[Rfam]
RNA sequence: CUGAAGGCCGCGUCCGGGUCAAUUCCCCGCUGCGGGAACACCCGAUCUCCCUGCUCGUGCCCUCCGGAAUGGAGGUCGAGCGGGGGGAGCGCGUCACCAUCAG
Numbered sequence: 001c002u003g004a005a006g007g008c009c010g011c012g013u014c015c016g017g018g019u020c021a022a023u024u025c026c027c028c029g030c031u032g033c034g035g036g037a038a039c040a041c042c043c044g045a046u047c048u049c050c051c052u053g054c055u056c057g058u059g060c061c062c063u064c065c066g067g068a069a070u071g072g073a074g075g076u077c078g079a080g081c082g083g084g085g086g087g088a089g090c091g092c093g094u095c096a097c098c099a100u101c102a103g
Base pairs, nucleotide, nucleotide: 001103002102003101004100009093010092011091012090013089015044016043017042018041023038024037025036026035027034046088047087048086049085050084055083056082057081058080060078
RNA: L4-Archaeoglobi ribosomal protein leades